[Rfam]
RNA sequence: ACCAACGAACGGCCGAAGCUUCUUCUUCAGAAGCGCGGGGGAACCAUUACUUGGGGUGAAGCCAACCGGAUUGGCAGGGUGAUUACUCUUUGACCCGAACCCGUCAGCUAACCUCGCAGGCCAAAAAAGGGAGGAUUC
Dot-bracket structure: ..........((((...((((((.....))))))((((((....((.....))(((.....((((.....))))..((((............))))...))).........)))))).))))................
Rfam assigns this 138-nucleotide sequence from Paenibacillus sedimenti to the family "c-di-AMP riboswitch aptamer (ydaO/yuaA leader)".
The match comes from Rfam's covariance-model search (99 bits).
NCBI's taxonomy places the organism under Bacteria, Bacillati, Bacilli, Paenibacillaceae, Paenibacillus.